[Rfam]
RNA sequence: UUCCACAGCUAUUGGAAUUGCAAUUGUUAUUAUAGUAGCAACUGUGGCAUUCCUCUGUAGGAAAGAGACUGUUACAAGAUUGAAUACCACUUUCUUAGCAAAACAGAAAAUGGGCAAAUCUGUGACAUACAAGA
Number, nucleotide and partner (000 for none) at each position: 001u000002u000003c060004c000005a058006c057007a000008g000009c000010u000011a000012u000013u000014g000015g000016a000017a000018u047019u046020g045021c044022a043023a000024u041025u040026g039027u000028u000029a000030u000031u000032a000033u000034a000035g000036u000037a000038g000039c026040a025041a024042c000043u022044g021045u020046g019047g018048c000049a000050u000051u000052c000053c000054u000055c000056u000057g006058u005059a000060g003061g000062a000063a000064a000065g000066a000067g000068a000069c000070u000071g000072u000073u000074a123075c122076a121077a000078g119079a000080u000081u000082g000083a000084a000085u000086a000087c114088c113089a000090c000091u109092u108093u107094c106095u105096u000097a000098g000099c000100a000101a000102a000103a000104c000105a095106g094107a093108a092109a091110a000111u000112g000113g088114g087115c000116a000117a000118a000119u078120c000121u076122g075123u074124g000125a000126c000127a000128u000129a000130c000131a000132a000133g000134a000
About this RNA: The record is a 134-nucleotide RNA sequence from Galemys pyrenaicus, which matches "Small nucleolar RNA SNORA41" in Rfam. The base pairs follow the family's consensus structure, which was predicted with PFOLD. NCBI's taxonomy places the organism under Eukaryota, Gnathostomata, Sarcopterygii, Tetrapoda, Galemys. It scores 109 bits against the family's covariance model. The family's RNA type in Rfam is H/ACA-box small nucleolar RNA. ACA41 is a member of the H/ACA class of snoRNA that guide the sites of modification of uridines to pseudouridines.